RNA sequence: GAGCCAGCUCAGCCCAGCGGUUCCAUCAACCAAUGCAUUGCUUAGAUCCCCUAAUUGCUUCCAGUGGUUUGAGACCCACGGACGCUGCCUGGCUUUUUU
Dot-bracket structure: .((((((....(.((.(.((.....((((.......................................))))...)).))).).....)))))).....
Numbered sequence: 001g002a003g004c005c006a007g008c009u010c011a012g013c014c015c016a017g018c019g020g021u022u023c024c025a026u027c028a029a030c031c032a033a034u035g036c037a038u039u040g041c042u043u044a045g046a047u048c049c050c051c052u053a054a055u056u057g058c059u060u061c062c063a064g065u066g067g068u069u070u071g072a073g074a075c076c077c078a079c080g081g082a083c084g085c086u087g088c089c090u091g092g093c094u095u096u097u098u099u
Stems, first nucleotide, its partner, number of pairs: 002094006012083001014081002017079001019077002026072004

A member of the RNA family "Vault RNA" from Podarcis muralis, 99 nucleotides long. Lineage of the source: Eukaryota > Opisthokonta > Eumetazoa > Bifurcata > Podarcis. Pairs were carried over by alignment from the consensus structure, which is taken from published work.